[Rfam]
RNA sequence: AUUAGCUUUUCUUUGGUAAUACAGCUCUAUGAUUGUAAUUGAGAUUCAUAAAGCUAGAUUACCAAAGCAAAGAUUAC
Numbered sequence: 001a002u003u004a005g006c007u008u009u010u011c012u013u014u015g016g017u018a019a020u021a022c023a024g025c026u027c028u029a030u031g032a033u034u035g036u037a038a039u040u041g042a043g044a045u046u047c048a049u050a051a052a053g054c055u056a057g058a059u060u061a062c063c064a065a066a067g068c069a070a071a072g073a074u075u076a077c
Base pairs, nucleotide, nucleotide: 002076004074007071008070009069011067012066013065014064015063016062017061018060019059020058023055024054025053026052028050029049030048031047032046